[Rfam]
RNA sequence: AAUCACUAAUCGCUGAGACCAUUAGGUACGGGGGAACCAUGUUCAUGGAUUGAUAUUUGAUCCAAGGGGUGAAUCCUUUUAAAGGUAGGGCUACUCAAAAGUCCAAAUCCGACAGCUAACCUCGUAAGCGUUAAAUUGAGACGGA
Dot-bracket structure: ..........((((...(((....)))((((((....(...........................)(((.....((((...))))..((((.........))))...))).........)))))).))))...............

A member of the RNA family "c-di-AMP riboswitch aptamer (ydaO/yuaA leader)" from Mesobacillus zeae, 145 nucleotides long.
The organism belongs to Mesobacillus, within Bacteria.